[Rfam]
RNA: RprA RNA
RNA sequence: ACAGUUUGGAUUUCAACCUCCUGAUUUAUAUGCAAGCUUUCCCCUAGCUGGCAUAAAACAAAAUUGCUGUGUGUAGUCUUUGCCUGUCUCCAAUGACGGGCCUUUUUUUGU
Numbered sequence: 001a002c003a004g005u006u007u008g009g010a011u012u013u014c015a016a017c018c019u020c021c022u023g024a025u026u027u028a029u030a031u032g033c034a035a036g037c038u039u040u041c042c043c044c045u046a047g048c049u050g051g052c053a054u055a056a057a058a059c060a061a062a063a064u065u066g067c068u069g070u071g072u073g074u075a076g077u078c079u080u081u082g083c084c085u086g087u088c089u090c091c092a093a094u095g096a097c098g099g100g101c102c103u104u105u106u107u108u109u110g111u
Base pairs, nucleotide, nucleotide: 002023003022004021033047036044065073066072067071082101083100084099085098086097087096088095